[Rfam]
RNA: mir-27 microRNA precursor family
RNA sequence: CUCAGCGGCAGGACUUAGCCCGCAUGUGAACACUGUAUGUUCCUCUCAUGUUCACAGUGGUUAAGUUCUGCCGCCCUU
Numbered sequence: 001c002u003c004a005g006c007g008g009c010a011g012g013a014c015u016u017a018g019c020c021c022g023c024a025u026g027u028g029a030a031c032a033c034u035g036u037a038u039g040u041u042c043c044u045c046u047c048a049u050g051u052u053c054a055c056a057g058u059g060g061u062u063a064a065g066u067u068c069u070g071c072c073g074c075c076c077u078u
Base pairs, nucleotide, nucleotide: 011068012067013066014065015064016063017062018061019060020059026055027054028053029052030051031050032049